[Rfam]
RNA sequence: GGCCUCCCUCUGUGGGGUGAUCUAUCUGGGGCCUCGUGAUGGAUCGCCCCUCAGAGGGAGGCC
Numbered sequence: 001g002g003c004c005u006c007c008c009u010c011u012g013u014g015g016g017g018u019g020a021u022c023u024a025u026c027u028g029g030g031g032c033c034u035c036g037u038g039a040u041g042g043a044u045c046g047c048c049c050c051u052c053a054g055a056g057g058g059a060g061g062c063c
Stems, first nucleotide, its partner, number of pairs: 001063012014050013027036003
RNA: mir-9242 microRNA precursor family
Organism: Cnephaeus nilssonii